[Rfam]
RNA: Small nucleolar RNA snoR8a
Organism: Arabidopsis lyrata
RNA sequence: AAGAGAGCGAUGAUUAUAAAAAACAAGAUUAAAAUUCUGAUCUGCUCUAUUACUGGGCAUGAUAGACUCAUAUACACCCAUAGAAUAUGAGCUCUC
Numbered sequence: 001a002a003g004a005g006a007g008c009g010a011u012g013a014u015u016a017u018a019a020a021a022a023a024c025a026a027g028a029u030u031a032a033a034a035u036u037c038u039g040a041u042c043u044g045c046u047c048u049a050u051u052a053c054u055g056g057g058c059a060u061g062a063u064a065g066a067c068u069c070a071u072a073u074a075c076a077c078c079c080a081u082a083g084a085a086u087a088u089g090a091g092c093u094c095u096c
Stems, first nucleotide, its partner, number of pairs: 003096002006093002